[Rfam]
RNA sequence: AUCAUCAAAUGAUGAAAUAUGGAAAAAUCUUAGGACACCUUCCUACAUAGCUUCUUGUUAGGCUAUGGAUGAGAAGAACAAUUCCGUUCUGAUGAUGUU
Numbered sequence: 001a002u003c004a005u006c007a008a009a010u011g012a013u014g015a016a017a018u019a020u021g022g023a024a025a026a027a028u029c030u031u032a033g034g035a036c037a038c039c040u041u042c043c044u045a046c047a048u049a050g051c052u053u054c055u056u057g058u059u060a061g062g063c064u065a066u067g068g069a070u071g072a073g074a075a076g077a078a079c080a081a082u083u084c085c086g087u088u089c090u091g092a093u094g095a096u097g098u099u
Base pairs, nucleotide, nucleotide: 001099003097004096005095006094007093043050044049
The record is a 99-nucleotide RNA sequence from Turnera subulata, which matches "Small nucleolar RNA snoR31/Z110/Z27" in Rfam. Rfam links the family to the GO terms nucleolus and RNA processing. Lineage of the source: Eukaryota > Spermatophyta > Mesangiospermae > Gunneridae > Turnera. On this family, see Barneche et al., J Mol Biol 2001: "Identification of 66 box C/D snoRNAs in Arabidopsis thaliana: extensive gene duplications generated multiple isoforms predicting new ribosomal RNA 2'-O-methylation sites". Rfam's curators write: This family contains several related snoRNAs including R31, Z27 and Z110. It is annotated as a C/D-box small nucleolar RNA. It scores 53 bits against the family's covariance model.